[Rfam]
Small nucleolar RNA U54: a 91-nucleotide sequence from Kalanchoe fedtschenkoi. Gene Ontology terms of the family: nucleolus and RNA processing. The family is grouped with related families in Rfam's "U54 clan". The family's RNA type in Rfam is C/D-box small nucleolar RNA. Rfam 15.1 lists 614 matches to the family in 206 species. About the family: U54 is a C/D box small nucleolar RNA, which acts as a methylation guide for 18S ribosomal RNA in plants.
Nucleotides: 091
Base pairs, nucleotide, nucleotide: 001091002090003089004088005087
Number, partner (000 for none) and nucleotide at each position: 001091g002090g003089c004088u005087c006000u007000g008000u009000g010000a011000u012000u013000a014000c015000a016000u017000g018000c019000c020000u021000g022000u023000u024000c025000a026000g027000g028000c029000a030000a031000u032000a033000u034000a035000c036000g037000c038000u039000a040000u041000u042000c043000c044000g045000a046000u047000u048000u049000u050000a051000u052000u053000g054000a055000a056000u057000g058000a059000g060000c061000u062000g063000a064000g065000a066000a067000c068000c069000u070000a071000c072000u073000a074000g075000g076000a077000g078000a079000a080000a081000c082000a083000a084000u085000g086000a087005g088004a089003g090002c091001c